[Rfam]
The record is a 50-nucleotide RNA from Actinomyces sp. oral taxon 849, which matches "F6 TB sRNA" in Rfam.
The family has 16 seed sequences and 310 matches in Rfam 15.1.
It scores 46 bits against the family's covariance model.
The base pairs follow the family's consensus structure, which is taken from published work.
By type it is a small RNA.

RNA sequence: CUGGAGGCCGCGUCCCGCCGUCGGACCCGACGGCGGGACGCGGCCUCCGC
Numbered sequence: 001c002u003g004g005a006g007g008c009c010g011c012g013u014c015c016c017g018c019c020g021u022c023g024g025a026c027c028c029g030a031c032g033g034c035g036g037g038a039c040g041c042g043g044c045c046u047c048c049g050c
Stems, first nucleotide, its partner, number of pairs: 002049004007044016